[Rfam]
RNA sequence: ACAUCUCUUUAGGGCGGGGUGUGAUUCCCCACCGGCGGUAUAGCCCGCGAGCCCCCUGGGGCAUGAUUCGGUGAGACUCCGAGGCCGACAGUAUAGUCUGGAUGAGAAAAGAAUGUC
Dot-bracket structure: .....(((((......(((.......))).[[((((((....[[))))....(.......).....(((((.......)))))]])).(((....]]))).......))))).....